Background
This 76-nucleotide RNA sequence from Crocodylus porosus belongs to the Rfam family "Small nucleolar RNA SNORD83". By type it is a C/D-box small nucleolar RNA. Gene Ontology terms of the family: nucleolus and RNA processing. It scores 62 bits against the family's covariance model.
RNA sequence: GCCAAAUGAUGUAAAAUAGAUUGCAGUAGCACUAUGUGCAAAGAUGACUUACAUCUAUCACCCAAUACUGAUGGCU
Numbered sequence: 001g002c003c004a005a006a007u008g009a010u011g012u013a014a015a016a017u018a019g020a021u022u023g024c025a026g027u028a029g030c031a032c033u034a035u036g037u038g039c040a041a042a043g044a045u046g047a048c049u050u051a052c053a054u055c056u057a058u059c060a061c062c063c064a065a066u067a068c069u070g071a072u073g074g075c076u
Stems, first nucleotide, its partner, number of pairs: 001075004029039004